The family of this 170-nucleotide part of an RNA from Astyanax mexicanus is "Microsporidia small subunit ribosomal RNA". The base pairs follow the family's consensus structure, which is taken from published work. On this family, see Cannone et al., BMC Bioinformatics 2002: "The comparative RNA web (CRW) site: an online database of comparative sequence and structure information for ribosomal, intron, and other RNAs". A search with the family's covariance model found it, with a score of 726 bits. The family has 46 seed sequences and 1,035 matches in Rfam 15.1. Its family is annotated with structural constituent of ribosome and ribosome in the Gene Ontology.
RNA sequence: GCCCGUCGCUACUACCGAUUGGAUGGUUAUGUGAGGUCCUCGGAUCGGCCACGCCGGGGCUCCUUCGCGGGGCCUUGGUGCUGUGCUGAAAAGUCGAUCGAACUUGAUCAUCUAGAGGAAGUAAAAGUCGUAACAAGGUUUCCGUAGGUGAACCUGCGGAAGGAUCAUUA
Numbered sequence: 001g002c003c004c005g006u007c008g009c010u011a012c013u014a015c016c017g018a019u020u021g022g023a024u025g026g027u028u029a030u031g032u033g034a035g036g037u038c039c040u041c042g043g044a045u046c047g048g049c050c051a052c053g054c055c056g057g058g059g060c061u062c063c064u065u066c067g068c069g070g071g072g073c074c075u076u077g078g079u080g081c082u083g084u085g086c087u088g089a090a091a092a093g094u095c096g097a098u099c100g101a102a103c104u105u106g107a108u109c110a111u112c113u114a115g116a117g118g119a120a121g122u123a124a125a126a127g128u129c130g131u132a133a134c135a136a137g138g139u140u141u142c143c144g145u146a147g148g149u150g151a152a153c154c155u156g157c158g159g160a161a162g163g164a165u166c167a168u169u170a
Stems, first nucleotide, its partner, number of pairs: 001134001004130002007127001010123004015118002020114010031103002035099004139162010